Shown here is a 71-nucleotide sequence from Rhodobacteraceae bacterium WD3A24, a member of the family "Singlet oxygen resistance RNA X". The literature on the family includes a 2016 paper in RNA Biol by Peng et al., "Regulation of a polyamine transporter by the conserved 3' UTR-derived sRNA SorX confers resistance to singlet oxygen and organic hydroperoxides in Rhodobacter sphaeroides". Rfam classes the family as a small RNA. Rfam 15.1 lists 528 matches to the family in 356 species. It scores 59 bits against the family's covariance model.
[Rfam]
RNA sequence: AUCCCGGCACCUGGGUCAAGGUGCAUUCCUCCCUGUUGGACUGGCCCGGGCCCUCGCGCCCGGGCAUUUUC
Numbered sequence: 001a002u003c004c005c006g007g008c009a010c011c012u013g014g015g016u017c018a019a020g021g022u023g024c025a026u027u028c029c030u031c032c033c034u035g036u037u038g039g040a041c042u043g044g045c046c047c048g049g050g051c052c053c054u055c056g057c058g059c060c061c062g063g064g065c066a067u068u069u070u071c
Stems, first nucleotide, its partner, number of pairs: 007024005044065008
Dot-bracket structure: ......(((((........)))))...................((((((((......))))))))......